[Rfam]
RNA sequence: UCUUUGGUCUUCAGGGGAGUAGUCGCCUGCCUUGCGCAGGGGGUACGUCAACAUACUUGGACUGCUGGUCCAUGGCGUAUCCGGCCGAUUCCGUUCACGCGGGCUCGUGCUUGACAAGACCUGAGGUCUGCAAACCGUACACCCGGGUGGGCGACGGUAGGCAGUCCUCACGUCAGCCCGC
Numbered sequence: 001u002c003u004u005u006g007g008u009c010u011u012c013a014g015g016g017g018a019g020u021a022g023u024c025g026c027c028u029g030c031c032u033u034g035c036g037c038a039g040g041g042g043g044u045a046c047g048u049c050a051a052c053a054u055a056c057u058u059g060g061a062c063u064g065c066u067g068g069u070c071c072a073u074g075g076c077g078u079a080u081c082c083g084g085c086c087g088a089u090u091c092c093g094u095u096c097a098c099g100c101g102g103g104c105u106c107g108u109g110c111u112u113g114a115c116a117a118g119a120c121c122u123g124a125g126g127u128c129u130g131c132a133a134a135c136c137g138u139a140c141a142c143c144c145g146g147g148u149g150g151g152c153g154a155c156g157g158u159a160g161g162c163a164g165u166c167c168u169c170a171c172g173u174c175a176g177c178c179c180g181c
Stems, first nucleotide, its partner, number of pairs: 027039003041082010058072005089180001
This 181-nucleotide sequence from Jeongeupia sacculi belongs to the Rfam family "Manganese Mn2+ riboswitch aptamer (yybP-ykoY)". About the family: This RNA was originally discovered in E. coli during a large scale screen and was named SraF. The family was later found to exist upstream of related families of protein genes in many bacteria, including the the yybP and ykoK genes in B. subtilis. The specific functions of these proteins are unknown, but this structured RNA element may be involved in their genetic regulation as a riboswitch. Pairs were carried over by alignment from the consensus structure. A search with the family's covariance model found it, with a score of 53 bits.